[Rfam]
Nucleotides: 268
Stems, first nucleotide, its partner, number of pairs: 002268004007263005014223006023074006037053005080253002083251004095107004108124006126196001128194001133191004141185002153179004163172003225238005
Number, partner (000 for none) and nucleotide at each position: 001000g002268g003267a004266u005265g006000a007263u008262c009261u010260g011259a012000a013000g014223a015222c016221c017220u018219g019218c020000u021000c022000g023074c024073u025072a026071g027070g028069c029000c030000a031000u032000g033000c034000a035000c036000g037053g038052a039051g040050g041049a042000c043000a044000u045000u046000g047000g048000u049041u050040c051039c052038u053037c054000a055000c056000g057000g058000g059000c060000c061000a062000u063000g064000a065000g066000c067000c068000c069028g070027c071026c072025u073024a074023g075000g076000g077000g078000a079000a080253a081252g082000u083251c084250c085249c086248c087000g088000g089000a090000c091000u092000g093000c094000c095107g096106g097105c098104a099000g100000a101000g102000a103000g104098u105097g106096c107095c108124g109123g110122g111121c112120g113119c114000u115000g116000c117000c118000c119113g120112c121111g122110c123109c124108c125000u126196g127000g128194c129000c130000c131000a132000c133191c134190c135189c136188c137000c138000a139000a140000c141185c142184c143000c144000a145000c146000u147000u148000a149000c150000c151000u152000a153179c154178c155177g156176c157000c158000a159000a160000g161000a162000c163172g164171c165170c166000c167000c168000c169000g170165g171164g172163c173000c174000g175000a176156g177155c178154g179153g180000g181000u182000g183000a184142g185141g186000g187000c188136g189135g190134g191133g192000c193000g194128g195000g196126c197000u198000c199000u200000c201000g202000u203000c204000a205000c206000g207000g208000c209000c210000a211000u212000a213000g214000a215000c216000a217000c218019g219018c220017a221016g222015g223014u224000a225238g226237u227236g228235c229234g230000c231000a232000g233000g234229c235228g236227c237226a238225c239000c240000a241000a242000c243000a244000g245000a246000a247000c248086g249085g250084g251083g252081c253080u254000c255000a256000c257000u258000c259011u260010c261009a262008g263007g264000c265005c266004a267003u268002c

About this RNA
RNase MRP: a 268-nucleotide sequence from Hemiprocne comata. The match comes from Rfam's covariance-model search (150 bits). Gene Ontology terms of the family: rRNA processing, ribonuclease MRP complex and ribonuclease MRP activity. A reference for the family is Schmitt et al. (1993), "Secondary structure of RNase MRP RNA as predicted by phylogenetic comparison", FASEB J.